[Rfam]
RNA sequence: CGGCUGUAAUGGUCAAAUGGUUGAAGGCUUUCAUUACUCUUCUUCCGCUACCCCAUCUACAUUGGAACCCUUUAGUGGCGCCCAGUGCGAAUGCCGCGGUGGCCACCCACUCGCAUGGGUAACCUGCGAUUGCUGCGUGUGGCCCUAAGCAAUGAAGAUAACACUUGAGGGAGGCUUCACUCUGCAGAGAGAUCUUCACCGUCGCAUGGCGUGCUGGAUUACGAUCGCUAGGGGCUUGGGGUAGCGGUUGGAGAUGGAGAUGUCAACUCCAAAUUU
Numbered sequence: 001c002g003g004c005u006g007u008a009a010u011g012g013u014c015a016a017a018u019g020g021u022u023g024a025a026g027g028c029u030u031u032c033a034u035u036a037c038u039c040u041u042c043u044u045c046c047g048c049u050a051c052c053c054c055a056u057c058u059a060c061a062u063u064g065g066a067a068c069c070c071u072u073u074a075g076u077g078g079c080g081c082c083c084a085g086u087g088c089g090a091a092u093g094c095c096g097c098g099g100u101g102g103c104c105a106c107c108c109a110c111u112c113g114c115a116u117g118g119g120u121a122a123c124c125u126g127c128g129a130u131u132g133c134u135g136c137g138u139g140u141g142g143c144c145c146u147a148a149g150c151a152a153u154g155a156a157g158a159u160a161a162c163a164c165u166u167g168a169g170g171g172a173g174g175c176u177u178c179a180c181u182c183u184g185c186a187g188a189g190a191g192a193u194c195u196u197c198a199c200c201g202u203c204g205c206a207u208g209g210c211g212u213g214c215u216g217g218a219u220u221a222c223g224a225u226c227g228c229u230a231g232g233g234g235c236u237u238g239g240g241g242u243a244g245c246g247g248u249u250g251g252a253g254a255u256g257g258a259g260a261u262g263u264c265a266a267c268u269c270c271a272a273a274u275u276u
Base pairs, nucleotide, nucleotide: 002014003013004012019274021272022271023270025268026267028262030260031259034257035256036255037253038252039251045247046246047245048244049243050242051241052240053239069234070233071232073230074229075228076227077226079223080222082217083216084215085214086213087212088211089210091207092206093205094204096202097201098200099199101144103142104141105140106139107135108132109131111129112128113127114126115125117124118123145149153198154197155196156195157194158193159192164189165188166187171182172181173180
RNA: Fungal signal recognition particle RNA